The record is a 142-nucleotide sequence from Rhodamnia argentea, which matches "Small nucleolar RNA U19" in Rfam.
The match comes from Rfam's covariance-model search (75 bits).
The family has 3 seed sequences and 421 matches in Rfam 15.1.
A reference for the family is Marker et al. (2002), "Experimental RNomics: identification of 140 candidates for small non-messenger RNAs in the plant Arabidopsis thaliana", Curr Biol.

RNA sequence: ACUGGGCUUAGUUAGGAGGCAAACAUGAACCUGGAGGAGCAGAGGUUGAUUUCUCUGGUCUUCCGACGGCUAAGGCCUUUUUGAGGGGACUGUUUUGCUGCUAAACCCAGAUCGAUUGUCCCCCAAGCAGCCUCGGACAUUC
Numbered sequence: 001a002c003u004g005g006g007c008u009u010a011g012u013u014a015g016g017a018g019g020c021a022a023a024c025a026u027g028a029a030c031c032u033g034g035a036g037g038a039g040c041a042g043a044g045g046u047u048g049a050u051u052u053c054u055c056u057g058g059u060c061u062u063c064c065g066a067c068g069g070c071u072a073a074g075g076c077c078u079u080u081u082u083g084a085g086g087g088g089a090c091u092g093u094u095u096u097g098c099u100g101c102u103a104a105a106c107c108c109a110g111a112u113c114g115a116u117u118g119u120c121c122c123c124c125a126a127g128c129a130g131c132c133u134c135g136g137a138c139a140u141u142c
Stems, first nucleotide, its partner, number of pairs: 005020001007018003034063005042056001044053002070136002073133004080127004085123006092116002